[Rfam]
RNA sequence: GGGUCAAUGAUGACAUUUUAACUUUCUUGAAGAGAGAUGAUGAUAUAAAAACCAUGCCCUCUGAGGUCC
Numbered sequence: 001g002g003g004u005c006a007a008u009g010a011u012g013a014c015a016u017u018u019u020a021a022c023u024u025u026c027u028u029g030a031a032g033a034g035a036g037a038u039g040a041u042g043a044u045a046u047a048a049a050a051a052c053c054a055u056g057c058c059c060u061c062u063g064a065g066g067u068c069c
Base pairs, nucleotide, nucleotide: 001069002068003067004066005063006062009059
Small nucleolar RNA SNORD115: a 69-nucleotide RNA from Trichechus manatus. It is annotated as a C/D-box small nucleolar RNA. The match comes from Rfam's covariance-model search (53 bits). The family's consensus secondary structure was predicted with PFOLD.